[Rfam]
RNA sequence: CGAGCCACCCGGGUGAUCGCGGCAGCCAUUGCUGUCGAGGAAAGUCCGGGCUCCAGAGGGCAUGGUGGUGGGUAACACCCACCCGGGGCGACCCGCGGGACAGUGCCACAGAGAACAGACCGCCGGUCCUCGGACCGGUAAGGGUGAAACGGCGGUGCAAGAGACCACCGCGUCAUCGGUGACGGUGACGGCAGGGCAAACCCCACCUGGAGCAAGGCCAAGAAGACCGAGAGGUCGCGGACGCGUUCGAGGGCUGCCCGCCCGAGCGUCCGGGUAGGCUGCGCAGCCAUUCGGCUGGAGGGUGUCGGCAACGGCACUCACAGAUGGAUGAUCACCGCUCCUUCGGGAGUACAGAACCCGGCUUACAGGGUGGCUCGUCCC
Numbered sequence: 001c002g003a004g005c006c007a008c009c010c011g012g013g014u015g016a017u018c019g020c021g022g023c024a025g026c027c028a029u030u031g032c033u034g035u036c037g038a039g040g041a042a043a044g045u046c047c048g049g050g051c052u053c054c055a056g057a058g059g060g061c062a063u064g065g066u067g068g069u070g071g072g073u074a075a076c077a078c079c080c081a082c083c084c085g086g087g088g089c090g091a092c093c094c095g096c097g098g099g100a101c102a103g104u105g106c107c108a109c110a111g112a113g114a115a116c117a118g119a120c121c122g123c124c125g126g127u128c129c130u131c132g133g134a135c136c137g138g139u140a141a142g143g144g145u146g147a148a149a150c151g152g153c154g155g156u157g158c159a160a161g162a163g164a165c166c167a168c169c170g171c172g173u174c175a176u177c178g179g180u181g182a183c184g185g186u187g188a189c190g191g192c193a194g195g196g197c198a199a200a201c202c203c204c205a206c207c208u209g210g211a212g213c214a215a216g217g218c219c220a221a222g223a224a225g226a227c228c229g230a231g232a233g234g235u236c237g238c239g240g241a242c243g244c245g246u247u248c249g250a251g252g253g254c255u256g257c258c259c260g261c262c263c264g265a266g267c268g269u270c271c272g273g274g275u276a277g278g279c280u281g282c283g284c285a286g287c288c289a290u291u292c293g294g295c296u297g298g299a300g301g302g303u304g305u306c307g308g309c310a311a312c313g314g315c316a317c318u319c320a321c322a323g324a325u326g327g328a329u330g331a332u333c334a335c336c337g338c339u340c341c342u343u344c345g346g347g348a349g350u351a352c353a354g355a356a357c358c359c360g361g362c363u364u365a366c367a368g369g370g371u372g373g374c375u376c377g378u379c380c381c
Stems, first nucleotide, its partner, number of pairs: 001377010011366001012336007020037007042364003046361005051212004058259004064207004068082005083097001084095004098203002103201002105197003120143002122139007151169002154166003170192001171190008216280004239271006251263004300319008
This 381-nucleotide RNA sequence from Acidipropionibacterium jensenii belongs to the Rfam family "Bacterial RNase P class A".
The source organism's lineage runs through Bacteria, Bacillati, Actinomycetes, Propionibacteriaceae and Acidipropionibacterium.